[Rfam]
RNA sequence: ACAAAUGAAUGAGGGAGCUCGUGAGCGGGCUGAGAGGAAGUCAUCCAACUUCGACCUUUAUAACCUGAUUUGGGUAAUGCCAACGUAGGGAAUAUACGCGAUGACAUG
Numbered sequence: 001a002c003a004a005a006u007g008a009a010u011g012a013g014g015g016a017g018c019u020c021g022u023g024a025g026c027g028g029g030c031u032g033a034g035a036g037g038a039a040g041u042c043a044u045c046c047a048a049c050u051u052c053g054a055c056c057u058u059u060a061u062a063a064c065c066u067g068a069u070u071u072g073g074g075u076a077a078u079g080c081c082a083a084c085g086u087a088g089g090g091a092a093u094a095u096a097c098g099c100g101a102u103g104a105c106a107u108g
Stems, first nucleotide, its partner, number of pairs: 006096002009093002011058004017030005037052005064089004070083004
Shown here is a 108-nucleotide sequence from Clostridium sp. CAG:43, a member of the family "TPP riboswitch aptamer (THI element)".
Rfam describes the family as follows. Vitamin B(1) in its active form thiamin pyrophosphate (TPP) is an essential coenzyme that is synthesised by coupling of pyrimidine and thiazole moieties in bacteria.
Lineage of the source: Bacteria > Bacillati > Bacillota > Clostridiaceae > Clostridium.
Gene Ontology term of the family: thiamine pyrophosphate binding.
For this family Rfam cites "Comparative genomics of thiamin biosynthesis in procaryotes. New genes and regulatory mechanisms" (Rodionov et al., J Biol Chem, 2002).